[Rfam]
RNA: Bacterial antisense RNA HPnc0260
Organism: Helicobacter sp. MIT 14-3879
RNA sequence: UGAGUAUUAAUAUUUAGUUCUUUUAUAGUUUGUAAAUCAAAGAUUUUAUUAUCUUUUUUAUAGGCUAUUAAUUCGCUCAAUAUUUUCCUUUUAUUUAAGUGGUGGCCACGAUUGGACUUGAACCAACGACCACUACCA
Numbered sequence: 001u002g003a004g005u006a007u008u009a010a011u012a013u014u015u016a017g018u019u020c021u022u023u024u025a026u027a028g029u030u031u032g033u034a035a036a037u038c039a040a041a042g043a044u045u046u047u048a049u050u051a052u053c054u055u056u057u058u059u060a061u062a063g064g065c066u067a068u069u070a071a072u073u074c075g076c077u078c079a080a081u082a083u084u085u086u087c088c089u090u091u092u093a094u095u096u097a098a099g100u101g102g103u104g105g106c107c108a109c110g111a112u113u114g115g116a117c118u119u120g121a122a123c124c125a126a127c128g129a130c131c132a133c134u135a136c137c138a
Base pairs, nucleotide, nucleotide: 024048025047030042031041033039100135101134102133103132104131105130109128110127112126113125114124115123